A member of the RNA family "Nuclear RNase P" from Holothuria leucospilota, 298 nucleotides long. A reference for the family is Brown (1999), "The Ribonuclease P Database", Nucleic Acids Res. Rfam links the family to the GO terms ribonuclease P activity, ribonuclease P complex and tRNA processing. Pairs were carried over by alignment from the consensus structure, which is taken from published work.
RNA sequence: UGGGUGACAUGCUCACUUACCAGGUUACAUACAGGUACUAGUUACUUUAGUUUACCUGGGGGAAGGUCUGAGAGAGGAGUAUGUAUGCUUCUUGAUGUUGUACCUCAUAAGAGGGGUGUGUAGUACAAGCUAAUUGGCCCUUGUGUGGUAUUAGUGGCUUAUGACGGUCACACUUGUGUGAUCAGAGGUCCAUAUGCUAGUGCAUUGGUUGGAAUUCUACACAGCUAGCAAUGUUAAGCUGAAUCAGUGAGGUGAGUUAUUGUUACUUACAACUCAAUUCAGACUACACUGUCACCUA
Numbered sequence: 001u002g003g004g005u006g007a008c009a010u011g012c013u014c015a016c017u018u019a020c021c022a023g024g025u026u027a028c029a030u031a032c033a034g035g036u037a038c039u040a041g042u043u044a045c046u047u048u049a050g051u052u053u054a055c056c057u058g059g060g061g062g063a064a065g066g067u068c069u070g071a072g073a074g075a076g077g078a079g080u081a082u083g084u085a086u087g088c089u090u091c092u093u094g095a096u097g098u099u100g101u102a103c104c105u106c107a108u109a110a111g112a113g114g115g116g117u118g119u120g121u122a123g124u125a126c127a128a129g130c131u132a133a134u135u136g137g138c139c140c141u142u143g144u145g146u147g148g149u150a151u152u153a154g155u156g157g158c159u160u161a162u163g164a165c166g167g168u169c170a171c172a173c174u175u176g177u178g179u180g181a182u183c184a185g186a187g188g189u190c191c192a193u194a195u196g197c198u199a200g201u202g203c204a205u206u207g208g209u210u211g212g213a214a215u216u217c218u219a220c221a222c223a224g225c226u227a228g229c230a231a232u233g234u235u236a237a238g239c240u241g242a243a244u245c246a247g248u249g250a251g252g253u254g255a256g257u258u259a260u261u262g263u264u265a266c267u268u269a270c271a272a273c274u275c276a277a278u279u280c281a282g283a284c285u286a287c288a289c290u291g292u293c294a295c296c297u298a
Base pairs, nucleotide, nucleotide: 001298002297003296004295007292008291009290012251013250014249015248016247017246020059021058022057023056024055033047034046035045036044037043068282069281070280071279072278078226079225080224087101088100091097102117103116104115105114106113118222119221120220121219122218123217138208139207252270253269254268255267256266257265